[Rfam]
RNA sequence: CUGGCCGGGUCAGGAGAGAGCGUCCCGGGCCCGCACCCGAGGACGCCGCCGAAGGCGCCGCGCGCAUGCGCUAAACGCUCAGGCCCAAGGACUGGCAAACGCGU
Numbered sequence: 001c002u003g004g005c006c007g008g009g010u011c012a013g014g015a016g017a018g019a020g021c022g023u024c025c026c027g028g029g030c031c032c033g034c035a036c037c038c039g040a041g042g043a044c045g046c047c048g049c050c051g052a053a054g055g056c057g058c059c060g061c062g063c064g065c066a067u068g069c070g071c072u073a074a075a076c077g078c079u080c081a082g083g084c085c086c087a088a089g090g091a092c093u094g095g096c097a098a099a100c101g102c103g104u
Stems, first nucleotide, its partner, number of pairs: 009096005020046006048084003051080002055078003062071002
Rfam assigns this 104-nucleotide RNA from Aquariibacter albus to the family "Glycine riboswitch aptamer". NCBI's taxonomy places the organism under Bacteria, Pseudomonadota, Betaproteobacteria, Burkholderiales, Aquariibacter.